[Rfam]
RNA sequence: UCAGGUUCUCCUGGCGUAUCUUCAAGCGUGUGGAUGGUCCCUCCCUCAUCCGCAUCGCGAUGCGCCCUCCUCGCCCCGCCCGUCGGCAACGACUGGCGGGGCUUUUU
Numbered sequence: 001u002c003a004g005g006u007u008c009u010c011c012u013g014g015c016g017u018a019u020c021u022u023c024a025a026g027c028g029u030g031u032g033g034a035u036g037g038u039c040c041c042u043c044c045c046u047c048a049u050c051c052g053c054a055u056c057g058c059g060a061u062g063c064g065c066c067c068u069c070c071u072c073g074c075c076c077c078g079c080c081c082g083u084c085g086g087c088a089a090c091g092a093c094u095g096g097c098g099g100g101g102c103u104u105u106u107u
Stems, first nucleotide, its partner, number of pairs: 013066008030053007073102008083092002
Dot-bracket structure: ............((((((((.........(((((((..........))))))).....))))))))......((((((((..((......))..)))))))).....
RNA: Rhizobiales sRNA Atu_C7